Source information
U12 minor spliceosomal RNA: a 154-nucleotide sequence from Araneus ventricosus. Gene Ontology terms of the family: pre-mRNA branch point binding, mRNA branch site recognition and U12 snRNP. The pairing is the family consensus, mapped onto this sequence. The match comes from Rfam's covariance-model search (90 bits). Clan: U2 clan.

[Rfam]
Nucleotides: 154
Base pairs, nucleotide, nucleotide: 004023005022006021007020008019032054033053035051036050039047058074059073060072061071062070088154089153090152091151092150095149096148097147098146099145100144101143105137108133109132110131112129113128114127115126116125
Number, partner (000 for none) and nucleotide at each position: 001000g002000u003000g004023u005022c006021u007020u008019a009000a010000a011000c012000u013000a014000a015000u016000g017000a018000g019008u020007a021006a022005g023004g024000g025000a026000a027000a028000a029000a030000a031000c032054g033053u034000a035051c036050u037000u038000u039047g040000u041000u042000u043000a044000a045000c046000g047039c048000u049000u050036g051035g052000c053033a054032c055000u056000a057000c058074a059073c060072c061071a062070a063000a064000u065000a066000u067000c068000c069000u070062u071061u072060g073059g074058u075000a076000c077000c078000a079000a080000u081000u082000u083000u084000u085000g086000g087000a088154g089153g090152g091151g092150u093000g094000c095149a096148g097147g098146u099145c100144g101143u102000c103000c104000c105137c106000g107000u108133g109132u110131g111000g112129u113128c114127u115126g116125c117000u118000u119000a120000c121000u122000u123000c124000c125116g126115c127114a128113g129112a130000c131110u132109g133108c134000u135000g136000g137105g138000u139000u140000g141000u142000u143101g144100u145099g146098a147097u148096c149095u150092g151091c152090u153089c154088c